RNA sequence: UACUGGCACCAGGGGUGUCCACUUGACUCAAGUUGUCAAGUGGACUGAGAUGACACCCUUUGAACCUGAUCAGGGUAAUUCCUGCGAAGGGAGUGUGCUGGACCCAUGUU
Numbered sequence: 001u002a003c004u005g006g007c008a009c010c011a012g013g014g015g016u017g018u019c020c021a022c023u024u025g026a027c028u029c030a031a032g033u034u035g036u037c038a039a040g041u042g043g044a045c046u047g048a049g050a051u052g053a054c055a056c057c058c059u060u061u062g063a064a065c066c067u068g069a070u071c072a073g074g075g076u077a078a079u080u081c082c083u084g085c086g087a088a089g090g091g092a093g094u095g096u097g098c099u100g101g102a103c104c105c106a107u108g109u110u
Stems, first nucleotide, its partner, number of pairs: 006098004011059004016053001017045011065090003071084004